[Rfam]
RNA: L31-Actinobacteria ribosomal protein leader
RNA sequence: AAGGUUCCGGUUCACGCCCUGAAGACUCGGCGACCCGGCGACC
Numbered sequence: 001a002a003g004g005u006u007c008c009g010g011u012u013c014a015c016g017c018c019c020u021g022a023a024g025a026c027u028c029g030g031c032g033a034c035c036c037g038g039c040g041a042c043c
Stems, first nucleotide, its partner, number of pairs: 003043003007038004015032004022027001